[Rfam]
RNA sequence: GUUACGGUUAAUAAGUAAAGUAAAUAAAGGUUUCUCAAAAACAGCGUAAUGACCUGGGAGAGAACAACGAUAACAAUGAACCAUUCCCAUGAGUGUUGCCUGGCAAUAUUUGUGGGGAUUUUUUGAUUAUUGUUAGCAUUUUUCUAAACAAGAACAACUGAAAAAAGAGUUUCUUUUUUCCAUUAUGUUUUGUUUCUGAGUUUAACCAAAUCACUCAUUAUUUCAAGGAGGAAUUAGGUUAUGUCAGUACAAUUAGAAGUUAAAGAAAGAGCUAUCCGUCCACGUUCACUAAGAAAUCAGCUACGUCACGAAGGGAAAGUACCUGCCAUUGUUUACGGUUACCAAAUUGAAAGUACACCAAUCUAUUUUG
Numbered sequence: 001g002u003u004a005c006g007g008u009u010a011a012u013a014a015g016u017a018a019a020g021u022a023a024a025u026a027a028a029g030g031u032u033u034c035u036c037a038a039a040a041a042c043a044g045c046g047u048a049a050u051g052a053c054c055u056g057g058g059a060g061a062g063a064a065c066a067a068c069g070a071u072a073a074c075a076a077u078g079a080a081c082c083a084u085u086c087c088c089a090u091g092a093g094u095g096u097u098g099c100c101u102g103g104c105a106a107u108a109u110u111u112g113u114g115g116g117g118a119u120u121u122u123u124u125g126a127u128u129a130u131u132g133u134u135a136g137c138a139u140u141u142u143u144c145u146a147a148a149c150a151a152g153a154a155c156a157a158c159u160g161a162a163a164a165a166a167g168a169g170u171u172u173c174u175u176u177u178u179u180c181c182a183u184u185a186u187g188u189u190u191u192g193u194u195u196c197u198g199a200g201u202u203u204a205a206c207c208a209a210a211u212c213a214c215u216c217a218u219u220a221u222u223u224c225a226a227g228g229a230g231g232a233a234u235u236a237g238g239u240u241a242u243g244u245c246a247g248u249a250c251a252a253u254u255a256g257a258a259g260u261u262a263a264a265g266a267a268a269g270a271g272c273u274a275u276c277c278g279u280c281c282a283c284g285u286u287c288a289c290u291a292a293g294a295a296a297u298c299a300g301c302u303a304c305g306u307c308a309c310g311a312a313g314g315g316a317a318a319g320u321a322c323c324u325g326c327c328a329u330u331g332u333u334u335a336c337g338g339u340u341a342c343c344a345a346a347u348u349g350a351a352a353g354u355a356c357a358c359c360a361a362u363c364u365a366u367u368u369u370g
Stems, first nucleotide, its partner, number of pairs: 003355003008350005015342004020336008029327003032064005042056003046053002067133007074125003078121002083119017134274004139270007146195008160180009196247004203241005209235003214230003277310003282306004289300002312324003